[Rfam]
RNA sequence: GUCGCCGUGAGGUGGGGUCUGGAGGAAGCCCAAUCCAAAGAUGCGGGGCGACGUACAGGAACCGGAUCUGAGGUGUGGUACACCCGGGACGAGUGGGCACGUGACCACGAAGUUCUCCAUCUGCAAGGGGGUGUGCUUUAUAAAUCCGGCGUUUACGCGUUAAAAGUUACGUGU
Number, nucleotide and partner (000 for none) at each position: 001g000002u015003c014004g013005c012006c011007g000008u000009g000010a000011g006012g005013u004014g003015g002016g000017g000018u000019c000020u000021g000022g000023a000024g000025g000026a000027a000028g174029c173030c000031c171032a000033a000034u000035c000036c166037a000038a000039a000040g161041a160042u159043g158044c157045g156046g154047g153048g152049c151050g150051a000052c000053g000054u000055a000056c000057a000058g000059g000060a000061a000062c149063c148064g147065g146066a145067u144068c000069u000070g000071a000072g000073g141074u140075g139076u000077g137078g136079u135080a134081c133082a132083c131084c000085c000086g000087g115088g114089a113090c112091g000092a000093g108094u107095g106096g105097g000098c000099a000100c000101g000102u000103g000104a000105c096106c095107a094108c093109g000110a000111a000112g090113u089114u088115c087116u000117c000118c000119a000120u000121c000122u000123g000124c000125a000126a000127g000128g000129g000130g000131g083132u082133g081134u080135g079136c078137u077138u000139u075140a074141u073142a000143a000144a067145u066146c065147c064148g063149g062150c050151g049152u048153u047154u046155a000156c045157g044158c043159g042160u041161u040162a000163a000164a000165a000166g036167u000168u000169a000170c000171g031172u000173g029174u028
RNA: Group II catalytic intron D1-D4-3
Organism: Desulfobacteraceae bacterium SEEP-SAG9